[Rfam]
RNA: EFASI RNA
RNA sequence: GCGAAUCUGAUAUCGAGGCAGACAUAAAUGUCUGGAGGAUGACUUGCGAAAGCAAGCGGCUGCACAGAGUGCACAACCGAUACCUCACAACACCUCAACCAUUGCCGCUCUGGCGUAUCGGUAUCAUUCG
Numbered sequence: 001g002c003g004a005a006u007c008u009g010a011u012a013u014c015g016a017g018g019c020a021g022a023c024a025u026a027a028a029u030g031u032c033u034g035g036a037g038g039a040u041g042a043c044u045u046g047c048g049a050a051a052g053c054a055a056g057c058g059g060c061u062g063c064a065c066a067g068a069g070u071g072c073a074c075a076a077c078c079g080a081u082a083c084c085u086c087a088c089a090a091c092a093c094c095u096c097a098a099c100c101a102u103u104g105c106c107g108c109u110c111u112g113g114c115g116u117a118u119c120g121g122u123a124u125c126a127u128u129c130g
Stems, first nucleotide, its partner, number of pairs: 002130004008126008019034006035086004043056005057079003061073005